The family of this 58-nucleotide RNA sequence from Caulobacter sp. 17J65-9 is "terC RNA". NCBI's taxonomy places the organism under Bacteria, Pseudomonadati, Pseudomonadota, Caulobacteraceae, Caulobacter. By type it is a cis-regulatory element. The base pairs follow the family's consensus structure, which is taken from published work.
[Rfam]
RNA sequence: CCACGGGUCCGGGCCCCUCUGGCGGCCGCACGUGCGGCCGUGAUGUCGGACCCCUCCU
Numbered sequence: 001c002c003a004c005g006g007g008u009c010c011g012g013g014c015c016c017c018u019c020u021g022g023c024g025g026c027c028g029c030a031c032g033u034g035c036g037g038c039c040g041u042g043a044u045g046u047c048g049g050a051c052c053c054c055u056c057c058u
Stems, first nucleotide, its partner, number of pairs: 006052007022041008